[Rfam]
RNA sequence: GGUCAUGAGUGACAGCUCUGAGCCCUGGCUUGCUGUCCGGCAACCCUCCUCCGCGGCGGGGUGCUCCAGGUGACGACCGGGCCGCGCGCACCGCGCGGCAAGUGCGGAUC
Numbered sequence: 001g002g003u004c005a006u007g008a009g010u011g012a013c014a015g016c017u018c019u020g021a022g023c024c025c026u027g028g029c030u031u032g033c034u035g036u037c038c039g040g041c042a043a044c045c046c047u048c049c050u051c052c053g054c055g056g057c058g059g060g061g062u063g064c065u066c067c068a069g070g071u072g073a074c075g076a077c078c079g080g081g082c083c084g085c086g087c088g089c090a091c092c093g094c095g096c097g098g099c100a101a102g103u104g105c106g107g108a109u110c
Base pairs, nucleotide, nucleotide: 001078002077003076004075009038011037012036013035014034015033016032021030022029039065040064041063044061045060046059048056049055081099082098083097084096085095086094087093088092
SAM (S-adenosyl methionine) riboswitch aptamer: a 110-nucleotide RNA from Streptomyces sp. NP160. From the family's description: SAM-IV is a mRNA element that regulates gene expression via direct sensing of S-adenosylmethionine (SAM or AdoMet). Its Rfam clan is "SAM clan". A reference for the family is Weinberg et al. (2008), "The aptamer core of SAM-IV riboswitches mimics the ligand-binding site of SAM-I riboswitches", RNA. Taxonomically the source falls in Streptomyces (Bacteria, Actinomycetota, Kitasatosporales, Streptomycetaceae).